RNA: TPP riboswitch aptamer (THI element)
RNA sequence: CGUUAUCACAGGGGGAGCUUUGCUGCUGAGAGGGAACACUUCGUUCCGACCCUUAGAACCUGUUAGUUAAUGCUAACGUAGGAAUUGUGCAAACGUUGAACU
Numbered sequence: 001c002g003u004u005a006u007c008a009c010a011g012g013g014g015g016a017g018c019u020u021u022g023c024u025g026c027u028g029a030g031a032g033g034g035a036a037c038a039c040u041u042c043g044u045u046c047c048g049a050c051c052c053u054u055a056g057a058a059c060c061u062g063u064u065a066g067u068u069a070a071u072g073c074u075a076a077c078g079u080a081g082g083a084a085u086u087g088u089g090c091a092a093a094c095g096u097u098g099a100a101c102u
Base pairs, nucleotide, nucleotide: 007089008088009087010086011053012052013051014050017026018025033047034046035045036044037043059082060081061080062079063076064075065074066073